[Rfam]
Nucleotides: 125
Stems, first nucleotide, its partner, number of pairs: 016092004021087011033075002036072004042055004056066004097118009
Number, partner (000 for none) and nucleotide at each position: 001000c002000a003000u004000g005000a006000c007000c008000c009000a010000a011000c012000c013000a014000g015000c016092g017091u018090u019089u020000u021087u022086c023085u024084u025083c026082g027081c028080a029079u030078u031077u032000c033075u034074u035000u036072u037071u038070a039069c040000c041000u042055u043054c044053c045052c046000c047000u048000g049000a050000a051000u052045g053044g054043g055042a056066g057065g058064c059063g060000u061000g062000u063059c064058g065057u066056c067000a068000u069039g070038u071037a072036a073000g074034a075033a076000u077031a078030a079029a080028u081027g082026c083025g084024a085023a086022g087021a088000c089019g090018a091017a092016c093000a094000g095000a096000c097118a098117g099116g100115c101114c102113u103112c104111c105110c106000a107000a108000c109000c110105g111104g112103g113102a114101g115100g116099c117098c118097u119000u120000u121000u122000u123000u124000a125000u